[Rfam]
Rfam assigns this 306-nucleotide sequence from Coffea arabica to the family "Plant signal recognition particle RNA". On this family, see Regalia et al., Nucleic Acids Res 2002: "Prediction of signal recognition particle RNA genes".
RNA sequence: GCCGGGCUGAGUAACGCAAGCCUGUAACCCAAGUGGGGGCAUUUGGCGUGUUGGAACAUGGAUUCCGUUCAGCUGGUAGGGUUUGGGGUGGCUAAAUGCUGGCCCGCCCGUUCCAAGCGGAGAGGUGGGCUACGUAACUUGGACGAAGGCCUGGGUCAUGUGGUCCUUAGAGAGGUGGGUAUUGCGUCAGGCUGGCUUCACAGAGCAGCGAAAACCACCCGCUCUCUGCAGUGGAAGGAUAACGGGCUGCUGCUCUCUGAGCCCAGUAUUACCAGAUGGAUGGUUUCUAACUGAACGAACACUCCU
Numbered sequence: 001g002c003c004g005g006g007c008u009g010a011g012u013a014a015c016g017c018a019a020g021c022c023u024g025u026a027a028c029c030c031a032a033g034u035g036g037g038g039g040c041a042u043u044u045g046g047c048g049u050g051u052u053g054g055a056a057c058a059u060g061g062a063u064u065c066c067g068u069u070c071a072g073c074u075g076g077u078a079g080g081g082u083u084u085g086g087g088g089u090g091g092c093u094a095a096a097u098g099c100u101g102g103c104c105c106g107c108c109c110g111u112u113c114c115a116a117g118c119g120g121a122g123a124g125g126u127g128g129g130c131u132a133c134g135u136a137a138c139u140u141g142g143a144c145g146a147a148g149g150c151c152u153g154g155g156u157c158a159u160g161u162g163g164u165c166c167u168u169a170g171a172g173a174g175g176u177g178g179g180u181a182u183u184g185c186g187u188c189a190g191g192c193u194g195g196c197u198u199c200a201c202a203g204a205g206c207a208g209c210g211a212a213a214a215c216c217a218c219c220c221g222c223u224c225u226c227u228g229c230a231g232u233g234g235a236a237g238g239a240u241a242a243c244g245g246g247c248u249g250c251u252g253c254u255c256u257c258u259g260a261g262c263c264c265a266g267u268a269u270u271a272c273c274a275g276a277u278g279g280a281u282g283g284u285u286u287c288u289a290a291c292u293g294a295a296c297g298a299a300c301a302c303u304c305c306u
Stems, first nucleotide, its partner, number of pairs: 001040003004023005028037003045305002048302005054296001057293002059290001061288001062286001065283003069279003073275006079264009090254002093252002100249007108238002111236005117229008127166009137156006144149001167172001174219005183212001185210003192203003
Dot-bracket structure: ((((((((..........)))))....(((....))))))....((.(((((.(..(((.((..(((.(((.(((((((((((((((..((.((.....(((((((.((.(((((.((((((((..(((((((((.((((((.(....).)))))).)))))))))(....).(((((....(.(((....(((......)))....))).)..)))))..))))))))..)))))))....))))))).)))).))))))))).....)))))).))).)))..).).).))..).))))).)).
The family has 63 seed sequences and 4,988 matches in Rfam 15.1. Rfam classes the family as a non-coding RNA gene. It scores 237 bits against the family's covariance model.